[Rfam]
This 354-nucleotide part of an RNA from Candidatus Fukatsuia symbiotica belongs to the Rfam family "Bacterial small subunit ribosomal RNA".
RNA sequence: GGCGUAAAGGGCACGUAGGCGGUUUCUUAAGUCAGAUGUGAAAUCCCCGAGCUUCACUUGGGAACGGCAUUUGAAACUGAGAGUCUAGAGUUUUGUAGAGGGGGGUAGAAUUCCAGGUGUAGCGGUGAAAUGCGUAGAUAUCUGGAGGAAUACCGGUGGCGAAGGCGGCCCCCUGGACAGAGACUGACGCUGAGGUGCGAAAGCGUGGGUAGCAAACAGGAUUAGAUACCCUGGUAGUCCACGCUGUAAACGAUGUCGAUUUGUAGGUUGUGGUUAUAAACUGUGGCUUGCGGAGCAAACGCGUUAAAUCGACCGCCUGGGGAGUACGGCCGCAAGGUUAAAACUCAAAUGAAU
Numbered sequence: 001g002g003c004g005u006a007a008a009g010g011g012c013a014c015g016u017a018g019g020c021g022g023u024u025u026c027u028u029a030a031g032u033c034a035g036a037u038g039u040g041a042a043a044u045c046c047c048c049g050a051g052c053u054u055c056a057c058u059u060g061g062g063a064a065c066g067g068c069a070u071u072u073g074a075a076a077c078u079g080a081g082a083g084u085c086u087a088g089a090g091u092u093u094u095g096u097a098g099a100g101g102g103g104g105g106u107a108g109a110a111u112u113c114c115a116g117g118u119g120u121a122g123c124g125g126u127g128a129a130a131u132g133c134g135u136a137g138a139u140a141u142c143u144g145g146a147g148g149a150a151u152a153c154c155g156g157u158g159g160c161g162a163a164g165g166c167g168g169c170c171c172c173c174u175g176g177a178c179a180g181a182g183a184c185u186g187a188c189g190c191u192g193a194g195g196u197g198c199g200a201a202a203g204c205g206u207g208g209g210u211a212g213c214a215a216a217c218a219g220g221a222u223u224a225g226a227u228a229c230c231c232u233g234g235u236a237g238u239c240c241a242c243g244c245u246g247u248a249a250a251c252g253a254u255g256u257c258g259a260u261u262u263g264u265a266g267g268u269u270g271u272g273g274u275u276a277u278a279a280a281c282u283g284u285g286g287c288u289u290g291c292g293g294a295g296c297a298a299a300c301g302c303g304u305u306a307a308a309u310c311g312a313c314c315g316c317c318u319g320g321g322g323a324g325u326a327c328g329g330c331c332g333c334a335a336g337g338u339u340a341a342a343a344c345u346c347a348a349a350u351g352a353a354u
Stems, first nucleotide, its partner, number of pairs: 001317003009314001011198004016192001018191003022085001024083005030078002032074008046062006089185003092181005100174007107151001111147008122133003159166002203244006212238002217233004255313006263291012295302002319346003328339004